RNA sequence: GGUCGGGAGUACGAAGGUUAUGCAACACCCGUAAGGGGAAAGCCUUCUGCCGUUCUACUAGGCGGUGUUGAAGCUCCCGACCUUUUUUGC
Dot-bracket structure: (((((((((...((((.((........(((....)))...)).))))((((((........))))))......)))))))))........

sRNA-Xcc1: a 90-nucleotide RNA sequence from Halodesulfovibrio spirochaetisodalis. Taxonomically the source falls in Halodesulfovibrio (Bacteria, Desulfovibrionia, Desulfovibrionales, Desulfovibrionaceae). The family's consensus secondary structure was predicted with RNAalifold. The literature on the family includes a 2011 paper in RNA Biol by Chen et al., "sRNA-Xcc1, an integron-encoded transposon- and plasmid-transferred trans-acting sRNA, is under the positive control of the key virulence regulators HrpG and HrpX of Xanthomonas campestris pathovar campestris".